The record is a 112-nucleotide RNA sequence from Cohaesibacter gelatinilyticus, which matches "EcpR1" in Rfam. The family's consensus secondary structure was predicted with WAR. Its family is annotated with mRNA binding, regulation of translation in response to stress and negative regulation of cell cycle in the Gene Ontology. A search with the family's covariance model found it, with a score of 72 bits. Taxonomically the source falls in Cohaesibacter (Bacteria, Pseudomonadati, Pseudomonadota, Alphaproteobacteria). About the family: Perviously named SmelC291, SmrC10, or Sra33. According to its overproduction phenotype it was renamed Elongated Cell Phenotype RNA1. Induced by stress,EcpR1 negatively regulates cell cycle master regulatory genes dnaA and gcrA at post-transcriptional level by base pairing between its strongly conserved GC-rich loop and the target mRNAs. It's regulation is hfq-independent but requires RNase E to regulate dnaA. Rfam classes the family as a small RNA. On this family, see del Val et al., Mol Microbiol 2007: "Identification of differentially expressed small non-coding RNAs in the legume endosymbiont Sinorhizobium meliloti by comparative genomics".

[Rfam]
RNA sequence: UCCCCCUACGGUAUGCCAGGUCCGCCGCAUCUCCUGGGGCCGUGGGGUUUGGUCGGUUCGGGCGCAGCAGAGUGGCCUCCUCAAGUGGUCUGCUUUCGAACCGGCCAUCCUU
Numbered sequence: 001u002c003c004c005c006c007u008a009c010g011g012u013a014u015g016c017c018a019g020g021u022c023c024g025c026c027g028c029a030u031c032u033c034c035u036g037g038g039g040c041c042g043u044g045g046g047g048u049u050u051g052g053u054c055g056g057u058u059c060g061g062g063c064g065c066a067g068c069a070g071a072g073u074g075g076c077c078u079c080c081u082c083a084a085g086u087g088g089u090c091u092g093c094u095u096u097c098g099a100a101c102c103g104g105c106c107a108u109c110c111u112u
Base pairs, nucleotide, nucleotide: 004047005046006045007044008043009042010041016037017036018035019034020033050107051106052105053104054103055102056101057100058099059098060097